U2 spliceosomal RNA: a 190-nucleotide sequence from Theropithecus gelada. Rfam's curators write: U2 is a small nuclear RNA (snRNA) component of the spliceosome (involved in pre-mRNA splicing). By type it is a spliceosomal small nuclear RNA.
RNA sequence: AUUGCUUCUCGACCUUUUGGCUAAGAUCAAGUGUAGUAGCUGUUCUUAUCAGUUUAAUAUUUGAUAUGUCCUCUAUCCAAGGGCAAUAUAUUAAAUGGAUUUUUGGAUCAGGGAGAUAGAAUAGGAGCUUGCUCCAUCCACUCCACACAUUGAUUGGUAUUGCAGUACCUCCAGGAAUGAUGCACCCCUC
Numbered sequence: 001a002u003u004g005c006u007u008c009u010c011g012a013c014c015u016u017u018u019g020g021c022u023a024a025g026a027u028c029a030a031g032u033g034u035a036g037u038a039g040c041u042g043u044u045c046u047u048a049u050c051a052g053u054u055u056a057a058u059a060u061u062u063g064a065u066a067u068g069u070c071c072u073c074u075a076u077c078c079a080a081g082g083g084c085a086a087u088a089u090a091u092u093a094a095a096u097g098g099a100u101u102u103u104u105g106g107a108u109c110a111g112g113g114a115g116a117u118a119g120a121a122u123a124g125g126a127g128c129u130u131g132c133u134c135c136a137u138c139c140a141c142u143c144c145a146c147a148c149a150u151u152g153a154u155u156g157g158u159a160u161u162g163c164a165g166u167a168c169c170u171c172c173a174g175g176a177a178u179g180a181u182g183c184a185c186c187c188c189u190c
Stems, first nucleotide, its partner, number of pairs: 007026003011022001013020002047066006068084005112144004119137001124135004148182005154174004